Record summary:
The family of this 76-nucleotide RNA sequence from Atrichornis clamosus is "mir-460 microRNA precursor family". The family's consensus secondary structure was predicted with RNAalifold.
[Rfam]
RNA sequence: CUUUCCAGCACCUGCAUUGUACACACUGUGUGUGUGCCUGGAAUUGCACAGCGCUUACAAUGUGGAUUCUGAACAA
Numbered sequence: 001c002u003u004u005c006c007a008g009c010a011c012c013u014g015c016a017u018u019g020u021a022c023a024c025a026c027u028g029u030g031u032g033u034g035u036g037c038c039u040g041g042a043a044u045u046g047c048a049c050a051g052c053g054c055u056u057a058c059a060a061u062g063u064g065g066a067u068u069c070u071g072a073a074c075a076a
Stems, first nucleotide, its partner, number of pairs: 012065002015062007024053001026051006
Rfam links the family to the GO terms miRNA-mediated post-transcriptional gene silencing and RISC complex. It scores 75 bits against the family's covariance model. The organism belongs to Atrichornis, within Eukaryota.